Shown here is a 94-nucleotide RNA from Alteribacillus bidgolensis, a member of the family "Guanidine-I riboswitch aptamer". The literature on the family includes a 2004 paper in Proc Natl Acad Sci U S A by Barrick et al., "New RNA motifs suggest an expanded scope for riboswitches in bacterial genetic control". Taxonomically the source falls in Alteribacillus (Bacteria, Bacillati, Caryophanales, Bacillaceae).
RNA sequence: CAAAUUGUUUUCUAGGGUUCCGCUUAUUUAGGCCUGGUCCGAGAGAAAACACACAGUACAAACUGUGGCACGGAGGGAAAAAAGCCCGGGAGAU
Numbered sequence: 001c002a003a004a005u006u007g008u009u010u011u012c013u014a015g016g017g018u019u020c021c022g023c024u025u026a027u028u029u030a031g032g033c034c035u036g037g038u039c040c041g042a043g044a045g046a047a048a049a050c051a052c053a054c055a056g057u058a059c060a061a062a063c064u065g066u067g068g069c070a071c072g073g074a075g076g077g078a079a080a081a082a083a084g085c086c087c088g089g090g091a092g093a094u
Stems, first nucleotide, its partner, number of pairs: 007050006015040002020037002022034001023031002052067006069089001071092001075087003
Dot-bracket structure: ......((((((..((...(((((.....))..).)).))....)))))).((((((....)))))).(.[...(((.......))).)..]..